[Rfam]
RNA sequence: AAGACUGUACUUAUACAGGAUCUUUCUUAUAGUAAUUACUUACUGUAAGUUUCUUCAUUUGAAGACAACAACUCAAUCUAGGAUGAUUAAAAGGACACUCUCAUCCGUAAAUGGGAUACAGAAACCAUUAGUAUUUUAUUCUCUUCGGAGAAUAGGUAUUUUUGCGUUUCACGAUGAUCAUCCAUCGCUGUGUUUGACCGAUCGUCUAUACGAAAAGUCACCAGCGGUUGGAGGGUGUGAGUGCUUCUGACUAGAU
Numbered sequence: 001a002a003g004a005c006u007g008u009a010c011u012u013a014u015a016c017a018g019g020a021u022c023u024u025u026c027u028u029a030u031a032g033u034a035a036u037u038a039c040u041u042a043c044u045g046u047a048a049g050u051u052u053c054u055u056c057a058u059u060u061g062a063a064g065a066c067a068a069c070a071a072c073u074c075a076a077u078c079u080a081g082g083a084u085g086a087u088u089a090a091a092a093g094g095a096c097a098c099u100c101u102c103a104u105c106c107g108u109a110a111a112u113g114g115g116a117u118a119c120a121g122a123a124a125c126c127a128u129u130a131g132u133a134u135u136u137u138a139u140u141c142u143c144u145u146c147g148g149a150g151a152a153u154a155g156g157u158a159u160u161u162u163u164g165c166g167u168u169u170c171a172c173g174a175u176g177a178u179c180a181u182c183c184a185u186c187g188c189u190g191u192g193u194u195u196g197a198c199c200g201a202u203c204g205u206c207u208a209u210a211c212g213a214a215a216a217g218u219c220a221c222c223a224g225c226g227g228u229u230g231g232a233g234g235g236u237g238u239g240a241g242u243g244c245u246u247c248u249g250a251c252u253a254g255a256u
Base pairs, nucleotide, nucleotide: 001041002040003039006035008034009033010032011031017027018026019025020024049069050068051067052065053064054063055062056061077255078254079253080252081251096243097242098241099240100239102237103236104235105234106233111181112180113179114178121170122169123168125164185227186226187225188224190222